[Rfam]
RNA sequence: GUCGGCGUCGUCACGCUGCAGCCGCAGAGCGUGACGGUCACGACGGAGCUGCCGGGCCGCGUCUCGGCCUUCCUCGUGGCCCAGGUGCGCGCCCGCGUGGACGGCAUCGUCUUGAGCCGCGACUUCGAGGAAGGGGCGCGGGUCACGGAAGGCCAGCGGCUCUACAAGAUCGA
Numbered sequence: 001g002u003c004g005g006c007g008u009c010g011u012c013a014c015g016c017u018g019c020a021g022c023c024g025c026a027g028a029g030c031g032u033g034a035c036g037g038u039c040a041c042g043a044c045g046g047a048g049c050u051g052c053c054g055g056g057c058c059g060c061g062u063c064u065c066g067g068c069c070u071u072c073c074u075c076g077u078g079g080c081c082c083a084g085g086u087g088c089g090c091g092c093c094c095g096c097g098u099g100g101a102c103g104g105c106a107u108c109g110u111c112u113u114g115a116g117c118c119g120c121g122a123c124u125u126c127g128a129g130g131a132a133g134g135g136g137c138g139c140g141g142g143u144c145a146c147g148g149a150a151g152g153c154c155a156g157c158g159g160c161u162c163u164a165c166a167a168g169a170u171c172g173a
Stems, first nucleotide, its partner, number of pairs: 003054005008047002011043002015039001019036001022033001023031002057148002061143003067137004072133001074131002078093003082089001094121002097118001102114003106110001157172002160168002
RNA: Burkholderia RNA 14